Shown here is a 75-nucleotide RNA sequence from Microcaecilia unicolor, a member of the family "Small nucleolar RNA SNORD11". Rfam links the family to the GO terms RNA processing and nucleolus. The match comes from Rfam's covariance-model search (59 bits). A reference for the family is Huttenhofer et al. (2001), "RNomics: an experimental approach that identifies 201 candidates for novel, small, non-messenger RNAs in mouse", EMBO J.
RNA sequence: UGGUCAGUGAUGAUGAUAUAACUUUGCCUGAUUUCACCAUGAGGGCAAUUUUAGUCACUACCUCAUCUGAGACCA
Numbered sequence: 001u002g003g004u005c006a007g008u009g010a011u012g013a014u015g016a017u018a019u020a021a022c023u024u025u026g027c028c029u030g031a032u033u034u035c036a037c038c039a040u041g042a043g044g045g046c047a048a049u050u051u052u053a054g055u056c057a058c059u060a061c062c063u064c065a066u067c068u069g070a071g072a073c074c075a
Base pairs, nucleotide, nucleotide: 001075002074003073004072